[Rfam]
SAM riboswitch aptamer (S box leader): a 141-nucleotide RNA from Paenibacillus antarcticus. The SAM riboswitch is found upstream of a number of genes which code for proteins involved in methionine or cysteine biosynthesis in Gram-positive bacteria. Rfam links the family to the GO term regulation of gene expression. Pairs were carried over by alignment from the consensus structure, which is taken from published work.
RNA sequence: UUCUUAUCAAGAGAGGCGGAGGGAUAGGCCCGAUGAAGCCCGGCAACCGAUAUUUGAAGAAUUGAGACAUAAAGUCUUAUCUUCCAAUGUAAGGUGCUAAUUCCUUCAGAUGCGUGUAAUAGCGACUCUGGUAGAUGAGAA
Numbered sequence: 001u002u003c004u005u006a007u008c009a010a011g012a013g014a015g016g017c018g019g020a021g022g023g024a025u026a027g028g029c030c031c032g033a034u035g036a037a038g039c040c041c042g043g044c045a046a047c048c049g050a051u052a053u054u055u056g057a058a059g060a061a062u063u064g065a066g067a068c069a070u071a072a073a074g075u076c077u078u079a080u081c082u083u084c085c086a087a088u089g090u091a092a093g094g095u096g097c098u099a100a101u102u103c104c105u106u107c108a109g110a111u112g113c114g115u116g117u118a119a120u121a122g123c124g125a126c127u128c129u130g131g132u133a134g135a136u137g138a139g140a141a
Stems, first nucleotide, its partner, number of pairs: 001141008013041001015040003021031003026105003042098004047094002050090004102133001107130004